[Rfam]
Shown here is a 134-nucleotide RNA sequence from Ochotona princeps, a member of the family "Small nucleolar RNA SNORA13".
Taxonomically the source falls in Ochotona (Eukaryota, Vertebrata, Gnathostomata, Ochotonidae).
It is annotated as an H/ACA-box small nucleolar RNA.
About the family: ACA13 is a member of the H/ACA class of snoRNA that guide the sites of modification of uridines to pseudouridines.
Pairs were carried over by alignment from the consensus structure, which was predicted with CMfinder.
Rfam 15.1 lists 1,034 matches to the family in 605 species.
The family is grouped with related families in Rfam's "SNORA13 clan".

RNA sequence: GGCCUUCGUGUUGCCCAUUCGCCUUUGGAAACUGGCGAACGUGGUGUCAAGGAGGGCGUACAUUGACUGCUUGGCAGGCUUUUCCAGCCCUGAGAUUCCAUAUCUCUGGUGCAGGAUCUGCACAAGUGACAGUU
Numbered sequence: 001g002g003c004c005u006u007c008g009u010g011u012u013g014c015c016c017a018u019u020c021g022c023c024u025u026u027g028g029a030a031a032c033u034g035g036c037g038a039a040c041g042u043g044g045u046g047u048c049a050a051g052g053a054g055g056g057c058g059u060a061c062a063u064u065g066a067c068u069g070c071u072u073g074g075c076a077g078g079c080u081u082u083u084c085c086a087g088c089c090c091u092g093a094g095a096u097u098c099c100a101u102a103u104c105u106c107u108g109g110u111g112c113a114g115g116a117u118c119u120g121c122a123c124a125a126g127u128g129a130c131a132g133u134u
Stems, first nucleotide, its partner, number of pairs: 002057006009049002012046004016041001018039006069127004074121005083116003087112002089109002094103001